[Rfam]
RNA sequence: AAAUAAAUAGGGCAAAACUAAGGGAACCUAGUGACUCAAAGCUAAAGGGGCUAAGGUUAUAAAAUUAUGCCAACGAGUUGCUAAU
Numbered sequence: 001a002a003a004u005a006a007a008u009a010g011g012g013c014a015a016a017a018c019u020a021a022g023g024g025a026a027c028c029u030a031g032u033g034a035c036u037c038a039a040a041g042c043u044a045a046a047g048g049g050g051c052u053a054a055g056g057u058u059a060u061a062a063a064a065u066u067a068u069g070c071c072a073a074c075g076a077g078u079u080g081c082u083a084a085u
Stems, first nucleotide, its partner, number of pairs: 012037001017032004022027001040079004048074001049071003056065003
The record is an 85-nucleotide sequence from Romboutsia sp. CE17, which matches "c-di-GMP-I riboswitch aptamer" in Rfam. For this family Rfam cites "Identification of 22 candidate structured RNAs in bacteria using the CMfinder comparative genomics pipeline" (Weinberg et al., Nucleic Acids Res, 2007). Its family is annotated with cyclic-di-GMP binding in the Gene Ontology. The family is grouped with related families in Rfam's "c-di-GMP_I riboswitch clan". GEMM was predicted in a large-scale screen for bacterial structured RNA regulatory elements.